Shown here is a 102-nucleotide RNA from [Clostridium] aminophilum, a member of the family "Glycine riboswitch aptamer". The base pairs follow the family's consensus structure.
[Rfam]
RNA sequence: GGAGUGGGCUCUGGAGAAUCUCCGAAAAGGAGUGCCGAAGGUGCAAGGAAACAUGCUUUUAUGCAUGCCGAAUCUCUCAGGCAAAAGGACAGAGUAUUAGGA
Dot-bracket structure: .....(.((((((......((((.....)))).(((((..(.(...((...................))....).))).))).......)))))).).....